This 260-nucleotide part of an RNA from Nakamurella aerolata belongs to the Rfam family "Bacterial large subunit ribosomal RNA". On this family, see Yusupov et al., Science 2001: "Crystal structure of the ribosome at 5.5 A resolution".

RNA sequence: GGAGUCUUGAGAAAGGCUGUCCCUAGUACGAGAGGACCGGGACGGACGAACCUCUGGUGUGCCAGUUGUUCCACCAGGAGCACGGCUGGUUAGCUACGUUCGGAAGGGAUAACCGCUGAAAGCAUCUAAGCGGGAAGCUCGUUUCAAGAUGAGGACUCCCAUCCUUAAUGGAGUAAGGCCCCCGGCAAGACCACCGGGUUGAUAGGCCGGAAGUGGAAGCACGGCAACGUGUGCAGCUGACCGGUACUAAUAGGCCGAGG
Numbered sequence: 001g002g003a004g005u006c007u008u009g010a011g012a013a014a015g016g017c018u019g020u021c022c023c024u025a026g027u028a029c030g031a032g033a034g035g036a037c038c039g040g041g042a043c044g045g046a047c048g049a050a051c052c053u054c055u056g057g058u059g060u061g062c063c064a065g066u067u068g069u070u071c072c073a074c075c076a077g078g079a080g081c082a083c084g085g086c087u088g089g090u091u092a093g094c095u096a097c098g099u100u101c102g103g104a105a106g107g108g109a110u111a112a113c114c115g116c117u118g119a120a121a122g123c124a125u126c127u128a129a130g131c132g133g134g135a136a137g138c139u140c141g142u143u144u145c146a147a148g149a150u151g152a153g154g155a156c157u158c159c160c161a162u163c164c165u166u167a168a169u170g171g172a173g174u175a176a177g178g179c180c181c182c183c184g185g186c187a188a189g190a191c192c193a194c195c196g197g198g199u200u201g202a203u204a205g206g207c208c209g210g211a212a213g214u215g216g217a218a219g220c221a222c223g224g225c226a227a228c229g230u231g232u233g234c235a236g237c238u239g240a241c242c243g244g245u246a247c248u249a250a251u252a253g254g255c256c257g258a259g260g
Stems, first nucleotide, its partner, number of pairs: 001159008011145004017045007047102005055096003062089005067082006106140003113133005162172003174258001177256004181198005203249003206245005212238002219232005
Record summary:
It scores 2846 bits against the family's covariance model.